[Rfam]
The record is a 127-nucleotide RNA from Meleagris gallopavo, which matches "U11 spliceosomal RNA" in Rfam. Clan: U1 clan.
RNA sequence: AAAAAGGGCUUCUGCCGUGCGUGGCACGGGGGGGUUUCGGCCACCCCCGCGGAAUCGACAUCAAGAGAUUUCGGAAGCACAAUUUUUGUGGGAGGGGUCGCUGGUAACCGCUUGUUCUGGCGCCCCG
Dot-bracket structure: .......((((((((((....)))))((((((...........))))))(((((((..........))))))))))))................((((.(((((.(((.....))))))))))))..